Shown here is an 82-nucleotide RNA, a member of the family "Small nucleolar RNA Z122". Rfam's curators put it in the seed alignment. By type it is a C/D-box small nucleolar RNA. The base pairs follow the family's consensus structure, which was predicted with PFOLD. Rfam 15.1 lists 822 matches to the family in 247 species.

RNA sequence: UGGGAUAUGAUGACAAAAAUACGAUAUCUCUAAGGCUAAUUGCUGUGCGGAUGAAAUGUAUUUGCACGUCAGUCUGAUCCCA
Numbered sequence: 001u002g003g004g005a006u007a008u009g010a011u012g013a014c015a016a017a018a019a020u021a022c023g024a025u026a027u028c029u030c031u032a033a034g035g036c037u038a039a040u041u042g043c044u045g046u047g048c049g050g051a052u053g054a055a056a057u058g059u060a061u062u063u064g065c066a067c068g069u070c071a072g073u074c075u076g077a078u079c080c081c082a
Stems, first nucleotide, its partner, number of pairs: 001082005